[Rfam]
RNA sequence: UAAAAUAUGGGCCUUCUCUUCCCCGUUCUUCCCAGAAGUUGGGAAAAGCUGGGUUGAGAGGGCGAAAAAUAAAUAAA
Numbered sequence: 001u002a003a004a005a006u007a008u009g010g011g012c013c014u015u016c017u018c019u020u021c022c023c024c025g026u027u028c029u030u031c032c033c034a035g036a037a038g039u040u041g042g043g044a045a046a047a048g049c050u051g052g053g054u055u056g057a058g059a060g061g062g063c064g065a066a067a068a069a070u071a072a073a074u075a076a077a
Stems, first nucleotide, its partner, number of pairs: 014060005021053003025049001029045006
mir-320 microRNA precursor family: a 77-nucleotide RNA sequence from Saimiri boliviensis. Gene Ontology terms of the family: positive regulation of stem cell proliferation, negative regulation of gene expression and RISC complex. Taxonomically the source falls in Saimiri boliviensis (Eukaryota, Chordata, Gnathostomata, Eutheria). The literature on the family includes a 2006 paper in Genome Res by Berezikov et al., "Many novel mammalian microRNA candidates identified by extensive cloning and RAKE analysis".